Shown here is a 292-nucleotide RNA sequence from Guillardia theta, a member of the family "Metazoan signal recognition particle RNA". The match comes from Rfam's covariance-model search (129 bits). The organism belongs to Guillardia theta, within Eukaryota. From the family's description: The signal recognition particle (SRP) is a universally conserved ribonucleoprotein. It is involved in the co-translational targeting of proteins to membranes. The eukaryotic SRP consists of a 300-nucleotide 7S RNA and six proteins: SRPs 72, 68, 54, 19, 14, and 9. Rfam classes the family as a non-coding RNA gene.
[Rfam]
RNA sequence: CCCGGCCAGGGUCGCGCCUGGCUGUAGCCCGAGCGGGGGGAGUGUGUCUGGACUGUGCGGGCGAGGCCGAGGGCCCAUCUUUACCAAUGCCGAUCCUGCGCCGACUUCAAGGUGGCGGUCGCCAUUGCUCACCGGGCGGAAGCUUGGUGGACUUGGGUGAUGAUGCGAGGCGGAACGCCACAGGCUGGAAACAGAGCAAGGAAAAGUCUCCGCCGUCAUCAGUGAAGCGAUCACGUGGGUGAAUUGGGGGGCGGAUCACCCGGAGACCUGCCACGAUGGGACAGGCACGGUC
Numbered sequence: 001c002c003c004g005g006c007c008a009g010g011g012u013c014g015c016g017c018c019u020g021g022c023u024g025u026a027g028c029c030c031g032a033g034c035g036g037g038g039g040g041a042g043u044g045u046g047u048c049u050g051g052a053c054u055g056u057g058c059g060g061g062c063g064a065g066g067c068c069g070a071g072g073g074c075c076c077a078u079c080u081u082u083a084c085c086a087a088u089g090c091c092g093a094u095c096c097u098g099c100g101c102c103g104a105c106u107u108c109a110a111g112g113u114g115g116c117g118g119u120c121g122c123c124a125u126u127g128c129u130c131a132c133c134g135g136g137c138g139g140a141a142g143c144u145u146g147g148u149g150g151a152c153u154u155g156g157g158u159g160a161u162g163a164u165g166c167g168a169g170g171c172g173g174a175a176c177g178c179c180a181c182a183g184g185c186u187g188g189a190a191a192c193a194g195a196g197c198a199a200g201g202a203a204a205a206g207u208c209u210c211c212g213c214c215g216u217c218a219u220c221a222g223u224g225a226a227g228c229g230a231u232c233a234c235g236u237g238g239g240u241g242a243a244u245u246g247g248g249g250g251g252c253g254g255a256u257c258a259c260c261c262g263g264a265g266a267c268c269u270g271c272c273a274c275g276a277u278g279g280g281a282c283a284g285g286c287a288c289g290g291u292c
Stems, first nucleotide, its partner, number of pairs: 001040003004023007028037003043289008053280002058275002060268002067263003071257002074254002079251004084247005090241001095239006102229002105227005111220009120159004127152001129150009160164001167210005178201002185194003